[Rfam]
RNA sequence: CCAGAUAAUUGGAUGACUGCUUUACUUGUAAAGAGGAAAGUCCGGGCUCCACAAGACAAUGGUGCCGGGUAAUACCCGGCGGGGGCGACCCCAGGGAAAGUGCCGCAGAAAAUAAACCGCCUUAAUUGAAAUUUAUAAGGUAAGGGUGAAAAGGUGAGGUAAGAGCUCACCGCUUUUUUGGUAACAAAAAAGGCAUGGUAAACCCCGCCAGGAGCAAGAUCAAAUAGAGUUACAAUAGUUAGUCUUGACUGUAACUGGGUUGAUCGCAUGAUUCGUGUGGUAACACUCGAACUAGAUGAAUAGUCAUAGAUUUUUAUUAAAUCACAGAACCCGGCUUAUAGAUUAUCUGGUAAU
Numbered sequence: 001c002c003a004g005a006u007a008a009u010u011g012g013a014u015g016a017c018u019g020c021u022u023u024a025c026u027u028g029u030a031a032a033g034a035g036g037a038a039a040g041u042c043c044g045g046g047c048u049c050c051a052c053a054a055g056a057c058a059a060u061g062g063u064g065c066c067g068g069g070u071a072a073u074a075c076c077c078g079g080c081g082g083g084g085g086c087g088a089c090c091c092c093a094g095g096g097a098a099a100g101u102g103c104c105g106c107a108g109a110a111a112a113u114a115a116a117c118c119g120c121c122u123u124a125a126u127u128g129a130a131a132u133u134u135a136u137a138a139g140g141u142a143a144g145g146g147u148g149a150a151a152a153g154g155u156g157a158g159g160u161a162a163g164a165g166c167u168c169a170c171c172g173c174u175u176u177u178u179u180g181g182u183a184a185c186a187a188a189a190a191a192g193g194c195a196u197g198g199u200a201a202a203c204c205c206c207g208c209c210a211g212g213a214g215c216a217a218g219a220u221c222a223a224a225u226a227g228a229g230u231u232a233c234a235a236u237a238g239u240u241a242g243u244c245u246u247g248a249c250u251g252u253a254a255c256u257g258g259g260u261u262g263a264u265c266g267c268a269u270g271a272u273u274c275g276u277g278u279g280g281u282a283a284c285a286c287u288c289g290a291a292c293u294a295g296a297u298g299a300a301u302a303g304u305c306a307u308a309g310a311u312u313u314u315u316a317u318u319a320a321a322u323c324a325c326a327g328a329a330c331c332c333g334g335c336u337u338a339u340a341g342a343u344u345a346u347c348u349g350g351u352a353a354u
Base pairs, nucleotide, nucleotide: 001350002349003348004347005346006345007344008343009342010341011339013307014306015305016304017303018302020033021032022031023030024029038337039336040335042334043333044332045331046330047214048213049212050211055245058243060210061209062208063207064206065079066078067077068076069075080094081092082091083090084089095205096204100203101202102199103198104197117145118144119141120140121139122138123137124136153171154170155169156168157167158166172194173192174191175190176189177188178187179186180185218265219264220263221262228256229255230254231253232252233251237250238249239248240247241246272291273290274289275288277286278285279284
RNA: Bacterial RNase P class A